Shown here is a 212-nucleotide RNA sequence from Geminocystis sp. M7585_C2015_104, a member of the family "Group I catalytic intron". The family has 12 seed sequences and 5,602 matches in Rfam 15.1. Group I catalytic introns are large self-splicing ribozymes. They catalyse their own excision from mRNA, tRNA and rRNA precursors in a wide range of organisms.
[Rfam]
RNA sequence: CUACGGACUUAAGGUAAUUGAGCCUUAUAGGGGAAACCCUAUAAGUGUAAGUUCUCAAAUUCAGGGGAACCUAAGUCGGGGCAAGCACCCGAUAUGGCAAUCCUGAGCCAAGCCCGUCAGACCGUGGCGGGAAGGUGCAGAGACUCGACGGGAACUACCCUAACAGUUCGGCUGAGGGUAAAGGGAGAGUCCAAUCCCCCAUGCUGUGGCUG
Numbered sequence: 001c002u003a004c005g006g007a008c009u010u011a012a013g014g015u016a017a018u019u020g021a022g023c024c025u026u027a028u029a030g031g032g033g034a035a036a037c038c039c040u041a042u043a044a045g046u047g048u049a050a051g052u053u054c055u056c057a058a059a060u061u062c063a064g065g066g067g068a069a070c071c072u073a074a075g076u077c078g079g080g081g082c083a084a085g086c087a088c089c090c091g092a093u094a095u096g097g098c099a100a101u102c103c104u105g106a107g108c109c110a111a112g113c114c115c116g117u118c119a120g121a122c123c124g125u126g127g128c129g130g131g132a133a134g135g136u137g138c139a140g141a142g143a144c145u146c147g148a149c150g151g152g153a154a155c156u157a158c159c160c161u162a163a164c165a166g167u168u169c170g171g172c173u174g175a176g177g178g179u180a181a182a183g184g185g186a187g188a189g190u191c192c193a194a195u196c197c198c199c200c201a202u203g204c205u206g207u208g209g210c211u212g
Base pairs, nucleotide, nucleotide: 005025006024008022009021010020011019012018029040030039031038050156051155052154053153054152056150061106062105063104064103065102066101070097071096074093107136108135113130114129140192142191143190144189145188146187158178159177160176161175163173199209200208201207202206